[Rfam]
RNA sequence: UAUCACCACGGAAUGUUUUUCUCGCAACACUUUUCCUGCGAGAUGCAGAAUGGACUCGAAAACUGCCCCCUCUGGCAGUCAAGAAUCAAAAUUACAAAGGACAAG
Numbered sequence: 001u002a003u004c005a006c007c008a009c010g011g012a013a014u015g016u017u018u019u020u021c022u023c024g025c026a027a028c029a030c031u032u033u034u035c036c037u038g039c040g041a042g043a044u045g046c047a048g049a050a051u052g053g054a055c056u057c058g059a060a061a062a063c064u065g066c067c068c069c070c071u072c073u074g075g076c077a078g079u080c081a082a083g084a085a086u087c088a089a090a091a092u093u094a095c096a097a098a099g100g101a102c103a104a105g
Base pairs, nucleotide, nucleotide: 020043021042022041023040024039025038026037062079063078064077065076066075067074
gltS RNA: a 105-nucleotide RNA from Vibrio mediterranei.
Lineage of the source: Bacteria > Pseudomonadati > Pseudomonadota > Vibrio > Vibrio mediterranei.